[Rfam]
RNA sequence: GCUCUGCCGAUCUCCAUUGGAGACCAGCACAUUUCCCUCGGCUAUUCAUCGAGCAAUUGAUGGUAACCGCGGAUGACAGCACGGCUUUUUCGGAUUUUUUUGUCCGUGCGCGACGCCCUCCUUGUUUGCCCCUGAGCUUUGGAGAGGAAACAAAAAGUUCCCUGUU
Dot-bracket structure: ....(((.(...(((...)))..)..)))....((((.((..(((((...........)).).))..)).))..))................((((.((((((............((((((......(.(.....).)..)))).))..)))))))).))......

Background
The record is a 166-nucleotide part of an RNA from Sodiomyces alkalinus, which matches "Ascomycota telomerase RNA" in Rfam. Its Rfam clan is "Telomerase clan". Rfam classes the family as a non-coding RNA gene. Gene Ontology terms of the family: telomerase catalytic core complex, telomerase activity and telomere maintenance via telomerase.